RNA sequence: UUACCGACGGCCUCAGAUUCGCUUGGUGCAGAUCGGGAAUUGAUUGUCUGACACCUCCACGUGUUUUAUCAUGUUUGGCUUGUGAGAAGUGAUCUGUUCCCGCCUUGCACCAACUGAAUCGGAGUCCAAGGUGAAA
Numbered sequence: 001u002u003a004c005c006g007a008c009g010g011c012c013u014c015a016g017a018u019u020c021g022c023u024u025g026g027u028g029c030a031g032a033u034c035g036g037g038a039a040u041u042g043a044u045u046g047u048c049u050g051a052c053a054c055c056u057c058c059a060c061g062u063g064u065u066u067u068a069u070c071a072u073g074u075u076u077g078g079c080u081u082g083u084g085a086g087a088a089g090u091g092a093u094c095u096g097u098u099c100c101c102g103c104c105u106u107g108c109a110c111c112a113a114c115u116g117a118a119u120c121g122g123a124g125u126c127c128a129a130g131g132u133g134a135a136a
Stems, first nucleotide, its partner, number of pairs: 013123002017119004023113009034102005040096001
MIR168 microRNA precursor family: a 136-nucleotide sequence from Arabis alpina. Pairs were carried over by alignment from the consensus structure, which was predicted with WAR. The source organism's lineage runs through Eukaryota, Euphyllophyta, eudicotyledons, Pentapetalae and Arabis. Rfam links the family to the GO terms miRNA-mediated post-transcriptional gene silencing and RISC complex. The family has 10 seed sequences and 518 matches in Rfam 15.1.